[Rfam]
RNA sequence: AAGUACAAAGAUAAAAACACAGUCCGGUUGGUAGUCCGGGCGCAGAAUAAAGAAUUCUGUCAGUAACCUGCCUCCUUUGGUUGUCCGUUCUUUGUUCAGCUAAA
Numbered sequence: 001a002a003g004u005a006c007a008a009a010g011a012u013a014a015a016a017a018c019a020c021a022g023u024c025c026g027g028u029u030g031g032u033a034g035u036c037c038g039g040g041c042g043c044a045g046a047a048u049a050a051a052g053a054a055u056u057c058u059g060u061c062a063g064u065a066a067c068c069u070g071c072c073u074c075c076u077u078u079g080g081u082u083g084u085c086c087g088u089u090c091u092u093u094g095u096u097c098a099g100c101u102a103a104a
Base pairs, nucleotide, nucleotide: 005095006094007093008092009091010090011089022041023040024039025038026037027036042060043059044058045057046056047055070081071080072079
A member of the RNA family "azaaromatic riboswitch aptamer (yjdF RNA)" from Robinsoniella sp. RHS, 104 nucleotides long.
A search with the family's covariance model found it, with a score of 91 bits.
Taxonomically the source falls in Robinsoniella (Bacteria, Bacillati, Lachnospirales, Lachnospiraceae).